[Rfam]
RNA sequence: GUGCAUUCAGUUGGAAUUGAAUCUUCGAAUUUGUCAAUUAUGAGUUGAACGUUUUAACAAUUCAGUCAUGAAUGC
Numbered sequence: 001g002u003g004c005a006u007u008c009a010g011u012u013g014g015a016a017u018u019g020a021a022u023c024u025u026c027g028a029a030u031u032u033g034u035c036a037a038u039u040a041u042g043a044g045u046u047g048a049a050c051g052u053u054u055u056a057a058c059a060a061u062u063c064a065g066u067c068a069u070g071a072a073u074g075c
Stems, first nucleotide, its partner, number of pairs: 003075006010026001013023002040069003044066006
Rfam assigns this 75-nucleotide sequence from Tripterygium wilfordii to the family "Plastid-ycf2 5UTR RNA". A reference for the family is Richter et al. (2023), "Retrograde signaling in plants: A critical review focusing on the GUN pathway and beyond", Plant Commun. About the family: Plastid ycf2 is a non-coding RNA (ncRNA) recognised in plastids. It was found in the prime untranslated region (5UTR) of ycf2 genes, it presents a tRNA-like motif which suggests it can be involved in mRNA maturation, particularly involved in defining the precise 5' end of the transcript. A search with the family's covariance model found it, with a score of 73 bits. Taxonomically the source falls in Tripterygium (Eukaryota, Streptophyta, Streptophytina, Mesangiospermae). It is annotated as a cis-regulatory element.